[Rfam]
RNA sequence: UGCAAGUUUCAGGGAAGGUGAGAUUCCUUACUGGCGGUAACGGCCGGACCGGCGCAUAACGAUCCGUGCCGGAGCCCGCGCGCCGAGAAUACGGCUGAUUUGGUGAGAUUCCAAGGCCAACGGUUACAGUCCGGAUGAAAGAAACGGAGC
Numbered sequence: 001u002g003c004a005a006g007u008u009u010c011a012g013g014g015a016a017g018g019u020g021a022g023a024u025u026c027c028u029u030a031c032u033g034g035c036g037g038u039a040a041c042g043g044c045c046g047g048a049c050c051g052g053c054g055c056a057u058a059a060c061g062a063u064c065c066g067u068g069c070c071g072g073a074g075c076c077c078g079c080g081c082g083c084c085g086a087g088a089a090u091a092c093g094g095c096u097g098a099u100u101u102g103g104u105g106a107g108a109u110u111c112c113a114a115g116g117c118c119a120a121c122g123g124u125u126a127c128a129g130u131c132c133g134g135a136u137g138a139a140a141g142a143a144a145c146g147g148a149g150c
Base pairs, nucleotide, nucleotide: 006145007144008143009142010141016028017027018026030130031129032119033118034079035078036077037076082095083094084093099115100114101113102112103111121133122132123131

A member of the RNA family "FMN riboswitch aptamer (RFN element)" from Bifidobacterium bombi, 150 nucleotides long.
Rfam links the family to the GO term FMN binding.
From the family's description: The RFN element is a highly conserved domain that is found frequently in the 5'-untranslated regions of prokaryotic mRNAs that encode for flavin mononucleotide (FMN) biosynthesis and transport proteins. This element is a metabolite-dependent riboswitch that directly binds FMN in the absence of proteins.
The match comes from Rfam's covariance-model search (85 bits).
The family's consensus secondary structure is taken from published work.